[Rfam]
Notes: A member of the RNA family "mir-395 microRNA precursor family" from Triticum aestivum, 142 nucleotides long. Taxonomically the source falls in Triticum (Eukaryota, Streptophyta, commelinids, Poales). A search with the family's covariance model found it, with a score of 62 bits. Pairs were carried over by alignment from the consensus structure, which was predicted with PFOLD. mir-395 was identified in both Arabidopsis thaliana and Oryza sativa computationally and was later experimentally verified. mir-395 is thought to target mRNAs coding for ATP sulphurylases. The mature sequence is excised from the 3' arm of the hairpin.
RNA sequence: UUGUCACCUGGAGUUCUUCUCAAAUCACUUCAGUAGCUAGCUCAUGCUACCCCAUUGUUGCAUUGCCACUGUUUUAAAAGUGUGCAUUGAGGGGAUAUAGAGCUUUGCAUAGUGAAGUGUUUGGGGGAACUCCGGGUGGCAA
Numbered sequence: 001u002u003g004u005c006a007c008c009u010g011g012a013g014u015u016c017u018u019c020u021c022a023a024a025u026c027a028c029u030u031c032a033g034u035a036g037c038u039a040g041c042u043c044a045u046g047c048u049a050c051c052c053c054a055u056u057g058u059u060g061c062a063u064u065g066c067c068a069c070u071g072u073u074u075u076a077a078a079a080g081u082g083u084g085c086a087u088u089g090a091g092g093g094g095a096u097a098u099a100g101a102g103c104u105u106u107g108c109a110u111a112g113u114g115a116a117g118u119g120u121u122u123g124g125g126g127g128a129a130c131u132c133c134g135g136g137u138g139g140c141a142a
Stems, first nucleotide, its partner, number of pairs: 005138005011132010022122003026119007034111002